[Rfam]
RNA sequence: AAGAACCACUAGGGGAGCCAUCUGGCUGAGAAAAGCGCUGCUUUGACCCUUUGAACCUGAUCUGGCUUGUACCAGCGUAGGGAAGUGGAGAACAAUUGCU
Number, nucleotide and partner (000 for none) at each position: 001a000002a000003g000004a000005a000006c088007c087008a086009c085010u084011a050012g049013g048014g047015g000016a044017g026018c025019c024020a000021u000022c000023u000024g019025g018026c017027u000028g000029a000030g000031a000032a000033a043034a042035g041036c040037g000038c000039u000040g036041c035042u034043u033044u016045g000046a000047c014048c013049c012050u011051u000052u000053g000054a000055a000056c081057c080058u079059g078060a000061u000062c075063u074064g073065g072066c000067u000068u000069g000070u000071a000072c065073c064074a063075g062076c000077g000078u059079a058080g057081g056082g000083a000084a010085g009086u008087g007088g006089a000090g000091a000092a000093c000094a000095a000096u000097u000098g000099c000100u000

Shown here is a 100-nucleotide sequence from Shouchella clausii, a member of the family "TPP riboswitch aptamer (THI element)". About the family: Vitamin B(1) in its active form thiamin pyrophosphate (TPP) is an essential coenzyme that is synthesised by coupling of pyrimidine and thiazole moieties in bacteria. The base pairs follow the family's consensus structure, which is taken from published work. Lineage of the source: Bacteria > Bacilli > Caryophanales > Shouchella > Shouchella clausii.